[Rfam]
RNA sequence: CAACAGAGUAAGGCUAUGCGCGUCAAGUGCCGCAUCAACGGGGAGUUGUGCUGCGGACGAAGGGAGACCCGCGGUGCAUGGCCUGCAUCCCGCUGCUG
Numbered sequence: 001c002a003a004c005a006g007a008g009u010a011a012g013g014c015u016a017u018g019c020g021c022g023u024c025a026a027g028u029g030c031c032g033c034a035u036c037a038a039c040g041g042g043g044a045g046u047u048g049u050g051c052u053g054c055g056g057a058c059g060a061a062g063g064g065a066g067a068c069c070c071g072c073g074g075u076g077c078a079u080g081g082c083c084u085g086c087a088u089c090c091c092g093c094u095g096c097u098g
Stems, first nucleotide, its partner, number of pairs: 002097001004095003011084010021073003027058002030056005036050002041090003045086001062070003
Rfam assigns this 98-nucleotide RNA to the family "THF (Tetrahydrofolate) riboswitch aptamer". Rfam describes the family as follows. Tetrahydrofolate (THF) riboswitch was first reported for Ames et al. as an RNA motif in 5' untranslated (5'-UTR)regions of folate transport and biosynthesis genes in Firmicutes genomes.